[Rfam]
RNA sequence: GGGAAACGAGAUGGGGGCUGGGGCUAUGAGCCAUCCCGAGCCCUAAGAAGCAUAGGCUCA
Numbered sequence: 001g002g003g004a005a006a007c008g009a010g011a012u013g014g015g016g017g018c019u020g021g022g023g024c025u026a027u028g029a030g031c032c033a034u035c036c037c038g039a040g041c042c043c044u045a046a047g048a049a050g051c052a053u054a055g056g057c058u059c060a
Base pairs, nucleotide, nucleotide: 014044015043016042017041018040019039021037022036023035028059029058030057031056032055
This 60-nucleotide sequence from Microcebus murinus belongs to the Rfam family "Ma3 gene ribosomal frameshift signal". The organism belongs to Microcebus, within Eukaryota. The sequence is in the family's curated seed alignment. On this family, see Wills et al., J Biol Chem 2006: "A functional -1 ribosomal frameshift signal in the human paraneoplastic Ma3 gene".